Rfam assigns this 139-nucleotide RNA sequence from Zea mays to the family "mir-166 microRNA precursor family". The source organism's lineage runs through Eukaryota, Streptophytina, Magnoliopsida, Tripsacinae and Zea. A reference for the family is Reinhart et al. (2002), "MicroRNAs in plants", Genes Dev. Its family is annotated with miRNA-mediated post-transcriptional gene silencing and RISC complex in the Gene Ontology.

[Rfam]
RNA sequence: GUCAGGGGGAUUGUUGUCUGGCUCGGGGUCUCCGGUCGAGAUCGAUUCAUAACAUAUACGUACGUGCUUCUAGCCUUGCCGGCGGAGCUAGUCGUUGUCGUCGACCGGAGAUUUCGGACCAGGCUUCAAUCCCUUUGAC
Numbered sequence: 001g002u003c004a005g006g007g008g009g010a011u012u013g014u015u016g017u018c019u020g021g022c023u024c025g026g027g028g029u030c031u032c033c034g035g036u037c038g039a040g041a042u043c044g045a046u047u048c049a050u051a052a053c054a055u056a057u058a059c060g061u062a063c064g065u066g067c068u069u070c071u072a073g074c075c076u077u078g079c080c081g082g083c084g085g086a087g088c089u090a091g092u093c094g095u096u097g098u099c100g101u102c103g104a105c106c107g108g109a110g111a112u113u114u115c116g117g118a119c120c121a122g123g124c125u126u127c128a129a130u131c132c133c134u135u136u137g138a139c
Stems, first nucleotide, its partner, number of pairs: 001139013016124006024116016
The family has 31 seed sequences and 2,599 matches in Rfam 15.1. Rfam's curators write: This family represents the plant microRNA (miRNA) precursor mir-166.